[Rfam]
Overview: A member of the RNA family "MIR2670 microRNA precursor family" from Medicago truncatula, 197 nucleotides long. The family's consensus secondary structure was predicted with RNAalifold. Rfam links the family to the GO terms miRNA-mediated post-transcriptional gene silencing and RISC complex.
RNA sequence: UCAGAGAAAAAUAGUGAAUUGCCGACUUGGGCAAGUGAUCCAUUGGGAUAAAAUUAAAUUCUCUUCUUUUUACCCCAAAAACUUUCUACAUUGGAUAAAAAGAAUCUUCUUGGGGUAUAAAAAAAACCAGAUUUAAAUUUAGUCCAAGGGUUGAUGAUGUAUUUUCCCCAAGAAGGUUGCUCACUAUUUUGCCCCAA
Numbered sequence: 001u002c003a004g005a006g007a008a009a010a011a012u013a014g015u016g017a018a019u020u021g022c023c024g025a026c027u028u029g030g031g032c033a034a035g036u037g038a039u040c041c042a043u044u045g046g047g048a049u050a051a052a053a054u055u056a057a058a059u060u061c062u063c064u065u066c067u068u069u070u071u072a073c074c075c076c077a078a079a080a081a082c083u084u085u086c087u088a089c090a091u092u093g094g095a096u097a098a099a100a101a102g103a104a105u106c107u108u109c110u111u112g113g114g115g116u117a118u119a120a121a122a123a124a125a126a127c128c129a130g131a132u133u134u135a136a137a138u139u140u141a142g143u144c145c146a147a148g149g150g151u152u153g154a155u156g157a158u159g160u161a162u163u164u165u166c167c168c169c170a171a172g173a174a175g176g177u178u179g180c181u182c183a184c185u186a187u188u189u190u191g192c193c194c195c196a197a
Base pairs, nucleotide, nucleotide: 004194006192008190009189010188011187012186013185014184015183016182017181019179021177022176023175026172027171028170029169030168031167033165034164035163038158040150041149043147044146045145046144047143049141050140051139052138054136055135056134057133058132059131060130064126065125067123068122069121070120071117072116073115074114075113076112077111078110082102083101084100085099087097088096